[Rfam]
RNA sequence: GUGGGACGACGGAUGGCCGCUCUCGUGAAAACGAGGGAGGAAAGUCCGGGCACCGCAAGGCAGGAUGCUGGAUAACGUCCAGGCGUAGAAAUACGACGGAUAGCGCAGCAGAAAACAUACCGCCUCGCAAGAGGUAAGGGUGAAAAGGCGAGGUAAGAGCUCACCGCGUUUCUGGUGACAGGAACGGCACGGCAAGCCCCAUCCGGUGCAAGACCAAGCAGAGUUCCGUACUCUUCGGAGUGCCUGGGUAGCCUUUUCCAGCUGGAAUUCGGGUAGGUUGCUUGAGGCCGCUAGUAAUAGCGGAUCCAGAUAGAUGGUCAUCGCCGACCUUUGGCCGGCACAAAACCCGGCUUAUAGUCGUCCCUUUUAU
Numbered sequence: 001g002u003g004g005g006a007c008g009a010c011g012g013a014u015g016g017c018c019g020c021u022c023u024c025g026u027g028a029a030a031a032c033g034a035g036g037g038a039g040g041a042a043a044g045u046c047c048g049g050g051c052a053c054c055g056c057a058a059g060g061c062a063g064g065a066u067g068c069u070g071g072a073u074a075a076c077g078u079c080c081a082g083g084c085g086u087a088g089a090a091a092u093a094c095g096a097c098g099g100a101u102a103g104c105g106c107a108g109c110a111g112a113a114a115a116c117a118u119a120c121c122g123c124c125u126c127g128c129a130a131g132a133g134g135u136a137a138g139g140g141u142g143a144a145a146a147g148g149c150g151a152g153g154u155a156a157g158a159g160c161u162c163a164c165c166g167c168g169u170u171u172c173u174g175g176u177g178a179c180a181g182g183a184a185c186g187g188c189a190c191g192g193c194a195a196g197c198c199c200c201a202u203c204c205g206g207u208g209c210a211a212g213a214c215c216a217a218g219c220a221g222a223g224u225u226c227c228g229u230a231c232u233c234u235u236c237g238g239a240g241u242g243c244c245u246g247g248g249u250a251g252c253c254u255u256u257u258c259c260a261g262c263u264g265g266a267a268u269u270c271g272g273g274u275a276g277g278u279u280g281c282u283u284g285a286g287g288c289c290g291c292u293a294g295u296a297a298u299a300g301c302g303g304a305u306c307c308a309g310a311u312a313g314a315u316g317g318u319c320a321u322c323g324c325c326g327a328c329c330u331u332u333g334g335c336c337g338g339c340a341c342a343a344a345a346c347c348c349g350g351c352u353u354a355u356a357g358u359c360g361u362c363c364c365u366u367u368u369a370u
Base pairs, nucleotide, nucleotide: 001366003364004363005362006361007360008359009358010357011355012322013321014320015319016318017317018316020037021036022035023034024033025032026031042353043352044351046350047349048348049347050346051208052207053206054205059258060257063204064203065202066201067200068082069081070080071079072078083097084095085094086093087092098199099198103197104196105193106192120139121138122135123134124133125132126131147165148164150162151161152160166188167186168185169184170183171182172181173180174179212279213278214277215276221270222269223268224267225266226265250263251262253261254260286305288303289302290301291300292299293298
RNA: Bacterial RNase P class A
Organism: Hallerella succinigenes